[Rfam]
This 75-nucleotide RNA sequence from Streptomyces sp. ISL-11 belongs to the Rfam family "ASpks TB sRNA". For this family Rfam cites "Identification of small RNAs in Mycobacterium tuberculosis" (Arnvig and Young, Mol Microbiol, 2009). Lineage of the source: Bacteria > Bacillati > Actinomycetes > Streptomycetaceae > Streptomyces. It is annotated as an antisense RNA.

RNA sequence: UUUCAGCGAACCCAGCCACAGCGGCCGGUCCUCCGGACGAUCCUGCCCGUACGUGGCCAGGAGCGCCUGUGCCUC
Numbered sequence: 001u002u003u004c005a006g007c008g009a010a011c012c013c014a015g016c017c018a019c020a021g022c023g024g025c026c027g028g029u030c031c032u033c034c035g036g037a038c039g040a041u042c043c044u045g046c047c048c049g050u051a052c053g054u055g056g057c058c059a060g061g062a063g064c065g066c067c068u069g070u071g072c073c074u075c
Stems, first nucleotide, its partner, number of pairs: 015025003031071001033069001038065002043060003047056003